RNA: Plastid-psbA-3 3UTR RNA
RNA sequence: AAAGGAGCAACAACUUUCUUCUUGUUUUAUAAAGAGGGCGUUAUUGCUCUUUUUUUA
Numbered sequence: 001a002a003a004g005g006a007g008c009a010a011c012a013a014c015u016u017u018c019u020u021c022u023u024g025u026u027u028u029a030u031a032a033a034g035a036g037g038g039c040g041u042u043a044u045u046g047c048u049c050u051u052u053u054u055u056u057a
Stems, first nucleotide, its partner, number of pairs: 001053010012042003019036005